Rfam assigns this 281-nucleotide part of an RNA from Tremella mesenterica to the family "Eukaryotic large subunit ribosomal RNA". Pairs were carried over by alignment from the consensus structure, which is taken from published work. NCBI's taxonomy places the organism under Eukaryota, Basidiomycota, Tremellomycetes, Tremellaceae, Tremella mesenterica. Rfam 15.1 lists 107,465 matches to the family in 2,616 species. Gene Ontology terms of the family: ribosome and structural constituent of ribosome.
[Rfam]
RNA sequence: GAGUCUAACAUAUCUGCGAGUGUUUGGGUGUCAAACCCGGACGCGUAAUGAAAGUGAACGUAGGAGGGAUCCGCGAGGAGCACCUUCGACCGAUCCGGAUCUUCUGUGAUGGAUUUGAGUGAGAGCAUAUAUGCUGGGACCCGAAAGAUGGUGAACUAUGCCUGAAUAGGGCGAAGCCAGGGGAAACUCUGGUGGAGGCUCGUAGCGAUUCUGACGUGCAAAUCGAUCGUCAAAUUUGGGUAUAGGGGCGAAAGACUAAUCGAACCAUCUAAUGGCUGGUU
Numbered sequence: 001g002a003g004u005c006u007a008a009c010a011u012a013u014c015u016g017c018g019a020g021u022g023u024u025u026g027g028g029u030g031u032c033a034a035a036c037c038c039g040g041a042c043g044c045g046u047a048a049u050g051a052a053a054g055u056g057a058a059c060g061u062a063g064g065a066g067g068g069a070u071c072c073g074c075g076a077g078g079a080g081c082a083c084c085u086u087c088g089a090c091c092g093a094u095c096c097g098g099a100u101c102u103u104c105u106g107u108g109a110u111g112g113a114u115u116u117g118a119g120u121g122a123g124a125g126c127a128u129a130u131a132u133g134c135u136g137g138g139a140c141c142c143g144a145a146a147g148a149u150g151g152u153g154a155a156c157u158a159u160g161c162c163u164g165a166a167u168a169g170g171g172c173g174a175a176g177c178c179a180g181g182g183g184a185a186a187c188u189c190u191g192g193u194g195g196a197g198g199c200u201c202g203u204a205g206c207g208a209u210u211c212u213g214a215c216g217u218g219c220a221a222a223u224c225g226a227u228c229g230u231c232a233a234a235u236u237u238g239g240g241u242a243u244a245g246g247g248g249c250g251a252a253a254g255a256c257u258a259a260u261c262g263a264a265c266c267a268u269c270u271a272a273u274g275g276c277u278g279g280u281u
Stems, first nucleotide, its partner, number of pairs: 005137003009133005015127003020044003025039005048055002063087005070079003089120002091117003094113003101106001140279002143276001147269006156245011167233001169201004176193007205230004210226002213224002247257002